[Rfam]
RNA sequence: CCUCUUUUCAAUCCGCAUGCAAACACCUAUAUCACCCCUGCCGGAUUUCGGUCCGGCUAUGGCGAUAAACGGUCGGUGUAAUAAACCUAUUGGACCCGGGGGCGGUACCCGGCGCCUCCACCACAAGCUGGCAUGAUCAGGCCGGUUUAUGAUGGGGGCGAAAUAGGAUCGACAAGGGUGUAAAGAUCGAACUUUUGCUCGGCAUGAUACCGCCGUUAUCGGGUCACAAGUGUAGUUGCAAACGACAACAACGCUAAGGGUUAUGCUCUCGCUGCCUAAUGGCGGUGCGGGAAAUCCGAACUAAGUCCUUAGGGUUAGCCCCUUAAGGCGGGGUCCGAAGGCACCUGGCAACAGAAGCCUUCACC
Numbered sequence: 001c002c003u004c005u006u007u008u009c010a011a012u013c014c015g016c017a018u019g020c021a022a023a024c025a026c027c028u029a030u031a032u033c034a035c036c037c038c039u040g041c042c043g044g045a046u047u048u049c050g051g052u053c054c055g056g057c058u059a060u061g062g063c064g065a066u067a068a069a070c071g072g073u074c075g076g077u078g079u080a081a082u083a084a085a086c087c088u089a090u091u092g093g094a095c096c097c098g099g100g101g102g103c104g105g106u107a108c109c110c111g112g113c114g115c116c117u118c119c120a121c122c123a124c125a126a127g128c129u130g131g132c133a134u135g136a137u138c139a140g141g142c143c144g145g146u147u148u149a150u151g152a153u154g155g156g157g158g159c160g161a162a163a164u165a166g167g168a169u170c171g172a173c174a175a176g177g178g179u180g181u182a183a184a185g186a187u188c189g190a191a192c193u194u195u196u197g198c199u200c201g202g203c204a205u206g207a208u209a210c211c212g213c214c215g216u217u218a219u220c221g222g223g224u225c226a227c228a229a230g231u232g233u234a235g236u237u238g239c240a241a242a243c244g245a246c247a248a249c250a251a252c253g254c255u256a257a258g259g260g261u262u263a264u265g266c267u268c269u270c271g272c273u274g275c276c277u278a279a280u281g282g283c284g285g286u287g288c289g290g291g292a293a294a295u296c297c298g299a300a301c302u303a304a305g306u307c308c309u310u311a312g313g314g315u316u317a318g319c320c321c322c323u324u325a326a327g328g329c330g331g332g333g334u335c336c337g338a339a340g341g342c343a344c345c346u347g348g349c350a351a352c353a354g355a356a357g358c359c360u361u362c363a364c365c
Stems, first nucleotide, its partner, number of pairs: 040057007061199005071192001073190005086178003090175003096112005113160007200215004205226003210222002331346004337362006
The record is a 365-nucleotide sequence from Rhizobium sp. NFR07, which matches "Alphaproteobacteria transfer-messenger RNA" in Rfam.
The family's RNA type in Rfam is non-coding RNA gene.
A reference for the family is Williams and Bartel (1996), "Phylogenetic analysis of tmRNA secondary structure", RNA.
The match comes from Rfam's covariance-model search (305 bits).